[Rfam]
RNA sequence: UAAAAAAGGGGAGUGCAGAGGGGGCACCCCUCACCGAUGAGGGAGGGUGCUCAGGCUGCUUGCAGCCGCCGAAGGGAAC
Dot-bracket structure: ..............(..((((((...)))))).)...................(((((....)))))............

Overview: Shown here is a 79-nucleotide RNA, a member of the family "Clostridiales-2 RNA". Rfam 15.1 lists 285 matches to the family in 26 species. The family's consensus secondary structure is taken from published work. Rfam classes the family as a small RNA. Rfam's curators put it in the seed alignment.